[Rfam]
RNA sequence: AAACAACACUCCAUGGCAGAUGAUCAGAACUGUCUGACACAAUUUGCUCUAGCAAAAAAGUCUAGCCUCCUCUGGUGUUCUCUCUGUGAGACAAGCCAUUACGCAGACUUAAACAGU
Numbered sequence: 001a002a003a004c005a006a007c008a009c010u011c012c013a014u015g016g017c018a019g020a021u022g023a024u025c026a027g028a029a030c031u032g033u034c035u036g037a038c039a040c041a042a043u044u045u046g047c048u049c050u051a052g053c054a055a056a057a058a059a060g061u062c063u064a065g066c067c068u069c070c071u072c073u074g075g076u077g078u079u080c081u082c083u084c085u086g087u088g089a090g091a092c093a094a095g096c097c098a099u100u101a102c103g104c105a106g107a108c109u110u111a112a113a114c115a116g117u
Stems, first nucleotide, its partner, number of pairs: 010041001014039002017036006058110006068103001073098004081091004